[Rfam]
RNA sequence: UGGCGCCCAACGUGGGGCUCGAGCACGGGGGAUCCAGUGAAGGACGCCGUUCGAGUGGCCGGCAGAAAGGAAAAGAAAAGGGGGAACAACGUGGGAACCUGCUACGUCUGUACCCCUCGGGUAAGUGAACGGCGAUUAUGGGUCAAGCAUUGAGCCAAGAUAAGAUGUUCGUUGAAGGACUAGGAAAGGCUAUAAAGGCACGAGGAGUAAAGGUGAAAAUUAAGCAUUUGUGUCAGUAUUUUGAUUAUAUUAAGGAAGUUUGCCCUU
Numbered sequence: 001u002g003g004c005g006c007c008c009a010a011c012g013u014g015g016g017g018c019u020c021g022a023g024c025a026c027g028g029g030g031g032a033u034c035c036a037g038u039g040a041a042g043g044a045c046g047c048c049g050u051u052c053g054a055g056u057g058g059c060c061g062g063c064a065g066a067a068a069g070g071a072a073a074a075g076a077a078a079a080g081g082g083g084g085a086a087c088a089a090c091g092u093g094g095g096a097a098c099c100u101g102c103u104a105c106g107u108c109u110g111u112a113c114c115c116c117u118c119g120g121g122u123a124a125g126u127g128a129a130c131g132g133c134g135a136u137u138a139u140g141g142g143u144c145a146a147g148c149a150u151u152g153a154g155c156c157a158a159g160a161u162a163a164g165a166u167g168u169u170c171g172u173u174g175a176a177g178g179a180c181u182a183g184g185a186a187a188g189g190c191u192a193u194a195a196a197g198g199c200a201c202g203a204g205g206a207g208u209a210a211a212g213g214u215g216a217a218a219a220u221u222a223a224g225c226a227u228u229u230g231u232g233u234c235a236g237u238a239u240u241u242u243g244a245u246u247a248u249a250u251u252a253a254g255g256a257a258g259u260u261u262g263c264c265c266u267u
Base pairs, nucleotide, nucleotide: 006031007030008029012026013025014024039047081118082117083116084115086111087110088109090106091105092104093103094102126145127144128143130142133140134139151194152193154190155189156188201243202242203241204240205239207237208236211229212228213227214226215225252267253266254265255264
RNA: Mason-Pfizer monkey virus packaging signal